[Rfam]
Nucleotides: 184
Stems, first nucleotide, its partner, number of pairs: 003181013017168003032153004038147005059128003063124005070118003074114004083106002088102005
Number, partner (000 for none) and nucleotide at each position: 001000u002000u003181u004180a005179c006178c007177c008176u009175g010174g011173a012172g013171u014170g015169u016000u017168u018167g019166u020000c021000a022000g023000a024000g025000g026000a027000u028000u029000c030000a031000c032153g033152u034151c035150c036000c037000c038147g039146a040145g041144c042143c043000g044000a045000u046000a047000a048000g049000c050000a051000a052000u053000c054000c055000c056000u057000a058000a059128g060127g061126g062000u063124u064123a065122g066121u067120a068000c069000u070118u071117g072116a073000g074114u075113g076112c077111u078000a079000u080000u081000g082000a083106g084105c085000a086000u087000g088102c089101u090100c091099g092098g093000c094000c095000c096000g097000a098092c099091c100090g101089a102088g103000a104000a105084g106083c107000c108000u109000a110000c111077g112076g113075u114074a115000a116072u117071c118070a119000u120067u121066g122065c123064u124063g125000a126061u127060c128059c129000g130000c131000c132000u133000u134000g135000a136000a137000c138000u139000c140000g141000c142000u143042g144041g145040u146039u147038c148000a149000a150035g151034g152033g153032c154000c155000a156000u157000c158000u159000a160000u161000u162000c163000u164000c165000a166019a167018c168017g169015g170014c171013a172012c173011u174010u175009u176008g177007g178006g179005g180004u181003a182000u183000c184000c
About this RNA:
6S / SsrS RNA: a 184-nucleotide sequence from Vibrionales bacterium SWAT-3. Rfam describes the family as follows. E. coli 6S RNA was the first non coding RNA to be sequenced, but its function was unknown until recently. It consists of 184 nucleotides that fold into an extended hairpin structure with a large single-stranded internal bulge. The 6S RNA specifically associates with RNA polymerase holoenzyme containing the sigma70 specificity factor. This interaction represses expression from a sigma70-dependent promoter during stationary phase. 6S RNA homologs have recently been identified in most bacterial genomes. Many Gram-positive species have two copies of 6S RNA. In Bacillus subtilis, both copies appear to interact with RNA polymerase holoenzyme containing the housekeeping sigma factor and be expressed during different stages of growth. In many proteobacteria, 6S RNA may be processed from a transcript encoding homologs of the E. coli YgfA protein which is a putative 5-formyltetrahydrofolate cycloligase activity. Rfam's curators put it in the seed alignment. It is annotated as a non-coding RNA gene.